[Rfam]
RNA sequence: CCGCCCAGUUGACAACGAGAAAGAGCACGCUGGUACACACAGCCAUGGCGGCGGCCAUGAUCAUGGACCGGCGUGCUCUCUCUCGUUGUCAAAUAAGC
Numbered sequence: 001c002c003g004c005c006c007a008g009u010u011g012a013c014a015a016c017g018a019g020a021a022a023g024a025g026c027a028c029g030c031u032g033g034u035a036c037a038c039a040c041a042g043c044c045a046u047g048g049c050g051g052c053g054g055c056c057a058u059g060a061u062c063a064u065g066g067a068c069c070g071g072c073g074u075g076c077u078c079u080c081u082c083u084c085g086u087u088g089u090c091a092a093a094u095a096a097g098c
Stems, first nucleotide, its partner, number of pairs: 010091005016085002020081001023078001025076010
Rfam assigns this 98-nucleotide sequence from Zingiber officinale to the family "MIR535 microRNA precursor family".
It scores 68 bits against the family's covariance model.
The family has 20 seed sequences and 544 matches in Rfam 15.1.
The source organism's lineage runs through Eukaryota, Tracheophyta, Euphyllophyta, Zingiberales and Zingiber.
Rfam links the family to the GO terms RISC complex and miRNA-mediated post-transcriptional gene silencing.